[Rfam]
RNA sequence: AAAAGUCCAACUUCUACUAAGACCGCCCACGUCCUGUGGGCAGCGUAGAAGUCCUUUUCAUCCUUCUUUUUGAACA
Numbered sequence: 001a002a003a004a005g006u007c008c009a010a011c012u013u014c015u016a017c018u019a020a021g022a023c024c025g026c027c028c029a030c031g032u033c034c035u036g037u038g039g040g041c042a043g044c045g046u047a048g049a050a051g052u053c054c055u056u057u058u059c060a061u062c063c064u065u066c067u068u069u070u071u072g073a074a075c076a
Base pairs, nucleotide, nucleotide: 011051012050013049014048015047016046017045026040027039028038029037030036055076057074058073059072
The record is a 76-nucleotide sequence from Bacilli bacterium VT-13-104, which matches "Bacillaceae-1 RNA" in Rfam.
The base pairs follow the family's consensus structure, which is taken from published work.
By type it is a small RNA.
The match comes from Rfam's covariance-model search (38 bits).